[Rfam]
RNA: DUF3800-I RNA
RNA sequence: UAUAGGGGCAGGUAGCGAUACGCUGUAUACUCAUGUAACCGAAUUGACGUUUAAGCGAACUGUAAGCUCGCCGGCCAUGAGGCAUAAUAACGCCCCUAGAAGUAAUCACCUGAUCAGUGAUGAAACUAGGGGUAUUUUUAUA
Numbered sequence: 001u002a003u004a005g006g007g008g009c010a011g012g013u014a015g016c017g018a019u020a021c022g023c024u025g026u027a028u029a030c031u032c033a034u035g036u037a038a039c040c041g042a043a044u045u046g047a048c049g050u051u052u053a054a055g056c057g058a059a060c061u062g063u064a065a066g067c068u069c070g071c072c073g074g075c076c077a078u079g080a081g082g083c084a085u086a087a088u089a090a091c092g093c094c095c096c097u098a099g100a101a102g103u104a105a106u107c108a109c110c111u112g113a114u115c116a117g118u119g120a121u122g123a124a125a126c127u128a129g130g131g132g133u134a135u136u137u138u139u140a141u142a
Base pairs, nucleotide, nucleotide: 008026009025010024011023012021013020014019030081031080032079033078034077035076039074040073041072042051043050044049055071056070057069058068060066093132094131095130096129097128098127099126
Dot-bracket structure: .......(((((((....))).))))...((((((...((((((....)))...((((.(.....).))))))).))))))...........(((((((..........................)))))))..........